sRNA-Xcc1: an 83-nucleotide sequence from Pseudomonas japonica.
It scores 69 bits against the family's covariance model.
On this family, see Schmidtke et al., Nucleic Acids Res 2011: "Genome-wide transcriptome analysis of the plant pathogen Xanthomonas identifies sRNAs with putative virulence functions".
Pairs were carried over by alignment from the consensus structure, which was predicted with RNAalifold.
RNA sequence: GUCGGGAGUGGACUAAUACAAGACCCGGAAGGGGAAUACGUCCGGUCCGCUACGUGGGAUUUCUUAGCUCCCGACUCCCAGCC
Numbered sequence: 001g002u003c004g005g006g007a008g009u010g011g012a013c014u015a016a017u018a019c020a021a022g023a024c025c026c027g028g029a030a031g032g033g034g035a036a037u038a039c040g041u042c043c044g045g046u047c048c049g050c051u052a053c054g055u056g057g058g059a060u061u062u063c064u065u066a067g068c069u070c071c072c073g074a075c076u077c078c079c080a081g082c083c
Stems, first nucleotide, its partner, number of pairs: 001075008010043004014038002024033003044061005